mir-484 microRNA precursor family: a 64-nucleotide RNA sequence from Cocos nucifera. Rfam links the family to the GO terms RISC complex and miRNA-mediated post-transcriptional gene silencing. The literature on the family includes a 2007 paper in Physiol Genomics by Coutinho et al., "Discovery and profiling of bovine microRNAs from immune-related and embryonic tissues". It scores 40 bits against the family's covariance model.

RNA sequence: UCGUAAAGGUCGACCCCUAGAUCAUCCCCUACAUAGGGAUCGACCUAGGGGUCGACCUUUGUGA
Numbered sequence: 001u002c003g004u005a006a007a008g009g010u011c012g013a014c015c016c017c018u019a020g021a022u023c024a025u026c027c028c029c030u031a032c033a034u035a036g037g038g039a040u041c042g043a044c045c046u047a048g049g050g051g052u053c054g055a056c057c058u059u060u061g062u063g064a
Stems, first nucleotide, its partner, number of pairs: 003062003007058002010055009020044001023042001027038004
The source organism's lineage runs through Eukaryota, Euphyllophyta, Mesangiospermae, Liliopsida and Cocos.